[Rfam]
RNA sequence: GUGCGUGAUCCUAAUUCCUGAGACCCUAUCAGUAUUGUCUCUGCUGUUCACUGUGUUCAGAGUAGUGCAAUAUUGCUUAUAGGGUUUCAGGCUUUAGGUUGU
Numbered sequence: 001g002u003g004c005g006u007g008a009u010c011c012u013a014a015u016u017c018c019u020g021a022g023a024c025c026c027u028a029u030c031a032g033u034a035u036u037g038u039c040u041c042u043g044c045u046g047u048u049c050a051c052u053g054u055g056u057u058c059a060g061a062g063u064a065g066u067g068c069a070a071u072a073u074u075g076c077u078u079a080u081a082g083g084g085u086u087u088c089a090g091g092c093u094u095u096a097g098g099u100u101g102u
Stems, first nucleotide, its partner, number of pairs: 020088010030075009041065005
Dot-bracket structure: ...................(((((((((((((((((((..(((((...............))))).)))))))))...))))))))))..............
RNA: mir-454 microRNA precursor family